[Rfam]
RNA sequence: UUUCAAAGAACGGAAUACUUUCAUAUAUACUUACCAAUAUGGGGUGAGAGUCUCUACCGGGUUGCCGUAAACAACCUGACUAUGAAGGUUAGAAUUUUAGUA
Numbered sequence: 001u002u003u004c005a006a007a008g009a010a011c012g013g014a015a016u017a018c019u020u021u022c023a024u025a026u027a028u029a030c031u032u033a034c035c036a037a038u039a040u041g042g043g044g045u046g047a048g049a050g051u052c053u054c055u056a057c058c059g060g061g062u063u064g065c066c067g068u069a070a071a072c073a074a075c076c077u078g079a080c081u082a083u084g085a086a087g088g089u090u091a092g093a094a095u096u097u098u099a100g101u102a
Stems, first nucleotide, its partner, number of pairs: 018088008030048006058078007
Dot-bracket structure: .................((((((((....((((((.......)))))).........(((((((.......)))))))..))))))))..............
Background:
The record is a 102-nucleotide RNA sequence from Tenuibacillus multivorans, which matches "Purine riboswitch aptamer" in Rfam. The match comes from Rfam's covariance-model search (86 bits).